[Rfam]
RNA sequence: AAUAGCCUUUGGGGCAAGGUGAAAAAGAGCAAUCUUUUGAUUCCUUACCGGCGGUAUAGUCCGCGAGCCGUAUGGUUGAUCCGGUGCAACUCCGGAACCGACAGUAUAGUCUGGAUGGGAAAAGGCUGAA
Numbered sequence: 001a002a003u004a005g006c007c008u009u010u011g012g013g014g015c016a017a018g019g020u021g022a023a024a025a026a027g028a029g030c031a032a033u034c035u036u037u038u039g040a041u042u043c044c045u046u047a048c049c050g051g052c053g054g055u056a057u058a059g060u061c062c063g064c065g066a067g068c069c070g071u072a073u074g075g076u077u078g079a080u081c082c083g084g085u086g087c088a089a090c091u092c093c094g095g096a097a098c099c100g101a102c103a104g105u106a107u108a109g110u111c112u113g114g115a116u117g118g119g120a121a122a123a124g125g126c127u128g129a130a
Base pairs, nucleotide, nucleotide: 003128004127005126006125007124008123009122010121017045018044019043047110048109049100050099051064052063053062054061059098060097067076068075069074080096081095082094083093084092102113103112104111